The family of this 84-nucleotide RNA from Cicer arietinum is "Small nucleolar RNA Z159/U59". The literature on the family includes a 2003 paper in Nucleic Acids Res by Chen et al., "The high diversity of snoRNAs in plants: identification and comparative study of 120 snoRNA genes from Oryza sativa". Rfam links the family to the GO terms nucleolus and RNA processing.
RNA sequence: GCCUCUGAGGAUGAUCAAACCUAUAACUUUGGUUCUUCCGAGUUGUCCGUGCGGAAAUUAUGUGGAGACCUGAACUGAAGAGGC
Numbered sequence: 001g002c003c004u005c006u007g008a009g010g011a012u013g014a015u016c017a018a019a020c021c022u023a024u025a026a027c028u029u030u031g032g033u034u035c036u037u038c039c040g041a042g043u044u045g046u047c048c049g050u051g052c053g054g055a056a057a058u059u060a061u062g063u064g065g066a067g068a069c070c071u072g073a074a075c076u077g078a079a080g081a082g083g084c
Stems, first nucleotide, its partner, number of pairs: 003082004